[Rfam]
RNA: mir-10 microRNA precursor family
RNA sequence: GGACUCGAACCCGUAGAUCCGAACUUGUGUUAAGUGACUGCAAGCCACAAGCUUGAAUCUACAGGUCUGCGUCCG
Numbered sequence: 001g002g003a004c005u006c007g008a009a010c011c012c013g014u015a016g017a018u019c020c021g022a023a024c025u026u027g028u029g030u031u032a033a034g035u036g037a038c039u040g041c042a043a044g045c046c047a048c049a050a051g052c053u054u055g056a057a058u059c060u061a062c063a064g065g066u067c068u069g070c071g072u073c074c075g
Base pairs, nucleotide, nucleotide: 002073003072004071006069007068010065011064015060016059017058018057020055021054022053024051025050026049027048028047029046